Shown here is a 199-nucleotide RNA from Catagonus wagneri, a member of the family "Small nucleolar RNA SNORA74". U19 belongs to the H/ACA class of snoRNAs. snoRNAs bind a number of proteins (including dyskerin, Gar1p and Nop10p in the case of the H/ACA class) to form snoRNP complexes. This class are thought to guide the sites of modification of uridines to pseudouridines by forming direct base pairing interactions with substrate RNAs. Targets may include ribosomal and spliceosomal RNAs but the exact functions of many snoRNAs, including U19, are not confirmed. Co-precipitation of U19 snoRNA with RNase MRP RNA suggests that U19 may be involved in pre-rRNA processing. The base pairs follow the family's consensus structure, which was predicted with PFOLD. A search with the family's covariance model found it, with a score of 197 bits.

RNA sequence: CCCAGCGGUUGUCAGCUGUCCAGGCUAGUGUGAUGCCUCGGAUGGUGUUACACUGUUGGGAGAGCAAGCACUGCCUUUGUUGAGGAUCGGCUCCAGAACUGUUUUGGUGUUGUGGCUGAGUACUUUGGGCAGUGUUUUGCACCUCUGAGAGUGGAAUAACUCCUCCUAUGGAGUUGGUCCUAGUCUGGGUGCGAACAGC
Numbered sequence: 001c002c003c004a005g006c007g008g009u010u011g012u013c014a015g016c017u018g019u020c021c022a023g024g025c026u027a028g029u030g031u032g033a034u035g036c037c038u039c040g041g042a043u044g045g046u047g048u049u050a051c052a053c054u055g056u057u058g059g060g061a062g063a064g065c066a067a068g069c070a071c072u073g074c075c076u077u078u079g080u081u082g083a084g085g086a087u088c089g090g091c092u093c094c095a096g097a098a099c100u101g102u103u104u105u106g107g108u109g110u111u112g113u114g115g116c117u118g119a120g121u122a123c124u125u126u127g128g129g130c131a132g133u134g135u136u137u138u139g140c141a142c143c144u145c146u147g148a149g150a151g152u153g154g155a156a157u158a159a160c161u162c163c164u165c166c167u168a169u170g171g172a173g174u175u176g177g178u179c180c181u182a183g184u185c186u187g188g189g190u191g192c193g194a195a196c197a198g199c
Stems, first nucleotide, its partner, number of pairs: 001060009011051002015046006022038004068135009082125002085123001087119006094112003098108003137194008153180003157176007
The literature on the family includes a 1998 paper in RNA by Bortolin and Kiss, "Human U19 intron-encoded snoRNA is processed from a long primary transcript that possesses little potential for protein coding".